[Rfam]
RNA sequence: UCAGAAGGCCGGAUGGCCGCUGCCCCGGCGACGGGGAGAGGAAAGUCCGGGCUCCACGGGUCCACGGUGCCGGGUAACGCCCGGCGGGGCGACCCCAGGGACAGUGCCACAGAGAGCAGACCGCCGCCGCUCGGCGGUAAGGGUGAAAGGGUGCGGUAAGAGCGCACCGCCCGGCCGGUAACGGUUCGGGGCAUGGCAAACCCCACCGGGAGCAAAACCGAAUAGGGGCGACACGGGCCGGCUUGCCGGUCCGGCGGCUGGACCCGCCGUCGUCGCCCGGGUUGGUUGCUUGAGGCGCGCGGCAACGCGCGUCCUAGAGGAAUGGUCAUCGGCGCGGGGCAACCCGCGACCACAGAACCCGGCUUACAGGCCCUCUGACGCC
Numbered sequence: 001u002c003a004g005a006a007g008g009c010c011g012g013a014u015g016g017c018c019g020c021u022g023c024c025c026c027g028g029c030g031a032c033g034g035g036g037a038g039a040g041g042a043a044a045g046u047c048c049g050g051g052c053u054c055c056a057c058g059g060g061u062c063c064a065c066g067g068u069g070c071c072g073g074g075u076a077a078c079g080c081c082c083g084g085c086g087g088g089g090c091g092a093c094c095c096c097a098g099g100g101a102c103a104g105u106g107c108c109a110c111a112g113a114g115a116g117c118a119g120a121c122c123g124c125c126g127c128c129g130c131u132c133g134g135c136g137g138u139a140a141g142g143g144u145g146a147a148a149g150g151g152u153g154c155g156g157u158a159a160g161a162g163c164g165c166a167c168c169g170c171c172c173g174g175c176c177g178g179u180a181a182c183g184g185u186u187c188g189g190g191g192c193a194u195g196g197c198a199a200a201c202c203c204c205a206c207c208g209g210g211a212g213c214a215a216a217a218c219c220g221a222a223u224a225g226g227g228g229c230g231a232c233a234c235g236g237g238c239c240g241g242c243u244u245g246c247c248g249g250u251c252c253g254g255c256g257g258c259u260g261g262a263c264c265c266g267c268c269g270u271c272g273u274c275g276c277c278c279g280g281g282u283u284g285g286u287u288g289c290u291u292g293a294g295g296c297g298c299g300c301g302g303c304a305a306c307g308c309g310c311g312u313c314c315u316a317g318a319g320g321a322a323u324g325g326u327c328a329u330c331g332g333c334g335c336g337g338g339g340c341a342a343c344c345c346g347c348g349a350c351c352a353c354a355g356a357a358c359c360c361g362g363c364u365u366a367c368a369g370g371c372c373c374u375c376u377g378a379c380g381c382c
Stems, first nucleotide, its partner, number of pairs: 001378005007372004011367001012330007020038002023035003043365003047362005052212004060264001063261001065208005070084005085098001086096004099203002104201002106197003121142002123138006150168006169192001170190005175184003216287004226278006255269004294313008
RNA: Bacterial RNase P class A
Organism: Hankyongella ginsenosidimutans